[Rfam]
RNA sequence: CGCUUUUUUUGCCCAGGCGGAGCUCGACCGCAAACUCAAGUCCUGAUCAGAUUCGUCGACCAGCAUCGCGAUACUUACGGGGUCGAGCCGAUCUGCAGAGUGCUGCAAAUCGCCCCG
Numbered sequence: 001c002g003c004u005u006u007u008u009u010u011g012c013c014c015a016g017g018c019g020g021a022g023c024u025c026g027a028c029c030g031c032a033a034a035c036u037c038a039a040g041u042c043c044u045g046a047u048c049a050g051a052u053u054c055g056u057c058g059a060c061c062a063g064c065a066u067c068g069c070g071a072u073a074c075u076u077a078c079g080g081g082g083u084c085g086a087g088c089c090g091a092u093c094u095g096c097a098g099a100g101u102g103c104u105g106c107a108a109a110u111c112g113c114c115c116c117g
Base pairs, nucleotide, nucleotide: 017031018030019029020028078117079116080115081114082113089112090111092109094107095106096105097104098103

This 117-nucleotide RNA sequence from Rhodoferax lacus belongs to the Rfam family "ALIL pseudoknot". The organism belongs to Rhodoferax, within Bacteria.